The family of this 213-nucleotide sequence from Prolemur simus is "Small nucleolar RNA U3". By type it is a C/D-box small nucleolar RNA. Rfam's curators write: Small nucleolar RNAs (snoRNAs) are involved in the processing and modification of rRNA in the nucleolus. There are two main classes of snoRNAs: the box C/D class, and the box H/ACA class. U3 snoRNA is a member of the box C/D class. Indeed, the box C/D element is a subset of the six short sequence elements found in all U3 snoRNAs, namely boxes A, A', B, C, C', and D. The U3 snoRNA secondary structure is characterised by a small 5' domain (with boxes A and A'), and a larger 3' domain (with boxes B, C, C', and D), the two domains being linked by a single-stranded hinge. Boxes B and C form the B/C motif, which appears to be exclusive to U3 snoRNAs, and boxes C' and D form the C'/D motif. The latter is functionally similar to the C/D motifs found in other snoRNAs. The 5' domain and the hinge region act as a pre-rRNA-binding domain. The 3' domain has conserved protein-binding sites. Both the box B/C and box C'/D motifs are sufficient for nuclear retention of U3 snoRNA. The box C'/D motif is also necessary for nucleolar localisation, stability and hyper-methylation of U3 snoRNA. Both box B/C and C'/D motifs are involved in specific protein interactions and are necessary for the rRNA processing functions of U3 snoRNA.
RNA sequence: AAAAGUAUACUUUCAGGGAUCAUUUCUACAGUUUCUUACUAGAGAAAUUUCUCUGAAUGUAUAGAGCACCAGAAACCACCAGAAGGAGGCGCAGUGUUCUCUUCUGAGCAUGAAGCCUGCUCUUGGUGUUGCUUGGCUACAACAGCCAUUUGCCAUUGAUGAUUGUUCUCUCCCUUCCAGGGAGUUAGAGGGAGAGGACACAAUCUGAGUGAU
Number, nucleotide and partner (000 for none) at each position: 001a000002a040003a000004a000005g037006u000007a034008u000009a032010c031011u030012u000013u000014c000015a027016g026017g025018g024019a000020u000021c000022a000023u000024u018025u017026c016027u015028a000029c000030a011031g010032u009033u000034u007035c000036u000037u005038a000039c000040u002041a000042g000043a000044g000045a000046a000047a000048u000049u065050u064051c000052u000053c000054u061055g000056a000057a000058u000059g000060u000061a054062u000063a000064g050065a049066g000067c000068a000069c000070c000071a000072g000073a000074a000075a213076c000077c211078a210079c209080c000081a000082g000083a000084a000085g000086g000087a000088g000089g000090c000091g000092c000093a000094g201095u200096g199097u198098u197099c196100u195101c194102u193103u192104c191105u190106g000107a000108g166109c165110a164111u000112g000113a000114a000115g000116c000117c000118u000119g153120c152121u000122c000123u000124u148125g147126g146127u145128g143129u142130u141131g140132c000133u000134u000135g000136g000137c000138u000139a000140c131141a130142a129143c128144a000145g127146c126147c125148a124149u000150u000151u000152g120153c119154c000155a000156u000157u000158g000159a000160u000161g000162a000163u000164u110165g109166u108167u000168c000169u000170c184171u183172c182173c181174c180175u000176u000177c000178c000179a000180g174181g173182g172183a171184g170185u000186u000187a000188g000189a000190g105191g104192g103193a102194g101195a100196g099197g098198a097199c096200a095201c094202a000203a000204u000205c000206u000207g000208a000209g079210u078211g077212a000213u075